[Rfam]
RNA sequence: AAUGACUAUCAAAAACACACUGGACCUUUUAUAAGACCCUUUUAACAAUUUUUGACAUUCCCAAAUAGAUUUGGGAAA
Dot-bracket structure: .....................((..(((....)))..))..................((((((((....)))))))).
SmY spliceosomal RNA: a 78-nucleotide RNA from Caenorhabditis angaria. A reference for the family is Jones et al. (2009), "A survey of nematode SmY RNAs", RNA Biol. The base pairs follow the family's consensus structure, which is taken from published work.